[Rfam]
The record is a 492-nucleotide part of an RNA from Thyridium curvatum, which matches "Eukaryotic large subunit ribosomal RNA" in Rfam. The family is grouped with related families in Rfam's "LSU clan". Rfam links the family to the GO terms ribosome and structural constituent of ribosome. It scores 2803 bits against the family's covariance model. Pairs were carried over by alignment from the consensus structure, which is taken from published work. Taxonomically the source falls in Thyridium (Eukaryota, Fungi, Pezizomycotina, Sordariomycetidae).
RNA sequence: CCGCCGAAGUUUCCCUCAGGAUAGCAGUGUUGUUUUCAGUUUUAUGAGGUAAAGCGAAUGAUUAGGGACUCGGGGGCGCUAUUUAGCCUUCAUCCAUUCUCAAACUUUAAAUAUGUAAGAAGCCCUUGUUACUUAAUUGAACGUGGGCAUUCGAAUGUAUCAACACUAGUGGGCCAUUUUUGGUAAGCAGAACUGGCGAUGCGGGAUGAACCGAACGCGAGGUUAAGGUGCCAGAGUAGACGCUCAUCAGACACCACAAAAGGUGUUAGUACAUCUUGACAGCAGGACGGUGGCCAUGGAAGUCGGAAUCCGCUAAGGACUGUGUAACAACUCACCUGCCGAAUGUACUAGCCCUGAAAAUGGAUGGCGCUCAAGCGUCUCACCCAUACCUCGCCCUUAGGGUAGAAACGAUGCCCUAAGGAGUAGGCGGCCGUGGAGGUCAGUGACGAAGCCUAGGGCGUGAGCCCGGGUCGAACGGCCUCUAGUGCAGAU
Numbered sequence: 001c002c003g004c005c006g007a008a009g010u011u012u013c014c015c016u017c018a019g020g021a022u023a024g025c026a027g028u029g030u031u032g033u034u035u036u037c038a039g040u041u042u043u044a045u046g047a048g049g050u051a052a053a054g055c056g057a058a059u060g061a062u063u064a065g066g067g068a069c070u071c072g073g074g075g076g077c078g079c080u081a082u083u084u085a086g087c088c089u090u091c092a093u094c095c096a097u098u099c100u101c102a103a104a105c106u107u108u109a110a111a112u113a114u115g116u117a118a119g120a121a122g123c124c125c126u127u128g129u130u131a132c133u134u135a136a137u138u139g140a141a142c143g144u145g146g147g148c149a150u151u152c153g154a155a156u157g158u159a160u161c162a163a164c165a166c167u168a169g170u171g172g173g174c175c176a177u178u179u180u181u182g183g184u185a186a187g188c189a190g191a192a193c194u195g196g197c198g199a200u201g202c203g204g205g206a207u208g209a210a211c212c213g214a215a216c217g218c219g220a221g222g223u224u225a226a227g228g229u230g231c232c233a234g235a236g237u238a239g240a241c242g243c244u245c246a247u248c249a250g251a252c253a254c255c256a257c258a259a260a261a262g263g264u265g266u267u268a269g270u271a272c273a274u275c276u277u278g279a280c281a282g283c284a285g286g287a288c289g290g291u292g293g294c295c296a297u298g299g300a301a302g303u304c305g306g307a308a309u310c311c312g313c314u315a316a317g318g319a320c321u322g323u324g325u326a327a328c329a330a331c332u333c334a335c336c337u338g339c340c341g342a343a344u345g346u347a348c349u350a351g352c353c354c355u356g357a358a359a360a361u362g363g364a365u366g367g368c369g370c371u372c373a374a375g376c377g378u379c380u381c382a383c384c385c386a387u388a389c390c391u392c393g394c395c396c397u398u399a400g401g402g403u404a405g406a407a408a409c410g411a412u413g414c415c416c417u418a419a420g421g422a423g424u425a426g427g428c429g430g431c432c433g434u435g436g437a438g439g440u441c442a443g444u445g446a447c448g449a450a451g452c453c454u455a456g457g458g459c460g461u462g463a464g465c466c467c468g469g470g471u472c473g474a475a476c477g478g479c480c481u482c483u484a485g486u487g488c489a490g491a492u
Base pairs, nucleotide, nucleotide: 001430002429003428004427005426010023012021013020014019026167027166028165029164030163031162032161040120041119042118043117044116045115046114052108053106054105059102060101061100064097066095067094068093072091073090074089075088076087078084122148123147124146125145127143128142129141130140173197174196175195176194178192179191180190181189182188202213203212204211217394218393219392220391221390223388227384228383229382236381238380241377242376243375261355262354263353265352266351267350268349269348270347271346272345273344274343282339283338284337285336286335288312289311290310294306295305313317318333322331323330395421396420397419398418399417400416401415402414403413432487434484435483436482437481438480439479440478441477443476444475451471452470457466458465459464